This 95-nucleotide RNA sequence from Cervus hanglu belongs to the Rfam family "Small nucleolar RNA SNORD116". Its family is annotated with nucleolus and RNA processing in the Gene Ontology. The base pairs follow the family's consensus structure, which was predicted with PFOLD.

RNA sequence: AGACAAAUGUAUAAGAAAGCCCACAUGCAUUCCUUGGAAAAUCUGAACAAAAUGAGUGAGAACUCACUACCGUCUCCUCAUCGAAAAUGAGGUCC
Numbered sequence: 001a002g003a004c005a006a007a008u009g010u011a012u013a014a015g016a017a018a019g020c021c022c023a024c025a026u027g028c029a030u031u032c033c034u035u036g037g038a039a040a041a042u043c044u045g046a047a048c049a050a051a052a053u054g055a056g057u058g059a060g061a062a063c064u065c066a067c068u069a070c071c072g073u074c075u076c077c078u079c080a081u082c083g084a085a086a087a088u089g090a091g092g093u094c095c
Stems, first nucleotide, its partner, number of pairs: 002094003028058005034050003